A member of the RNA family "Small nucleolar RNA snoR111" from Hibiscus trionum, 135 nucleotides long. Lineage of the source: Eukaryota > Embryophyta > Magnoliopsida > rosids > Hibiscus. A search with the family's covariance model found it, with a score of 88 bits. The base pairs follow the family's consensus structure, which was predicted with WAR. Its family is annotated with RNA processing and nucleolus in the Gene Ontology. A reference for the family is Marker et al. (2002), "Experimental RNomics: identification of 140 candidates for small non-messenger RNAs in the plant Arabidopsis thaliana", Curr Biol.
[Rfam]
RNA sequence: AAGAGAGUGAUGAGAAAUUUUUAUCUUGUCUUAUCAUUGAAGAGGAACAUUGAGGUAUAAUGAAAAUCGAAGGCCGAGAUAUCGUUUCAGUCGUCAUUUUCUUUGAUUGGCGAUUUGAUUGUUGCUUGUCCACAU
Numbered sequence: 001a002a003g004a005g006a007g008u009g010a011u012g013a014g015a016a017a018u019u020u021u022u023a024u025c026u027u028g029u030c031u032u033a034u035c036a037u038u039g040a041a042g043a044g045g046a047a048c049a050u051u052g053a054g055g056u057a058u059a060a061u062g063a064a065a066a067u068c069g070a071a072g073g074c075c076g077a078g079a080u081a082u083c084g085u086u087u088c089a090g091u092c093g094u095c096a097u098u099u100u101c102u103u104u105g106a107u108u109g110g111c112g113a114u115u116u117g118a119u120u121g122u123u124g125c126u127u128g129u130c131c132a133c134a135u
Base pairs, nucleotide, nucleotide: 006038007037008036009035010034011033012032013031014030015029017027072131073130075128076127077126078125081119082118083117084116090114091113092112093111094110095109096108098106099105